A member of the RNA family "Streptomyces RNA 3202" from Streptomyces mexicanus, 87 nucleotides long. For this family Rfam cites "Deep sequencing-based identification of small non-coding RNAs in Streptomyces coelicolor" (Vockenhuber et al., RNA Biol, 2011).
RNA sequence: CCAGGUCCCGACGCACUCCCCCCGGCGCCGGGACCCUCCCCGAGCCGGGCUCGGCGCCUCCCCCCGGGCGCCGGGCCCGGCUCCCCU
Numbered sequence: 001c002c003a004g005g006u007c008c009c010g011a012c013g014c015a016c017u018c019c020c021c022c023c024g025g026c027g028c029c030g031g032g033a034c035c036c037u038c039c040c041c042g043a044g045c046c047g048g049g050c051u052c053g054g055c056g057c058c059u060c061c062c063c064c065c066g067g068g069c070g071c072c073g074g075g076c077c078c079g080g081c082u083c084c085c086c087u
Stems, first nucleotide, its partner, number of pairs: 005034006012027003042083018
Lineage of the source: Bacteria > Bacillati > Actinomycetota > Kitasatosporales > Streptomyces.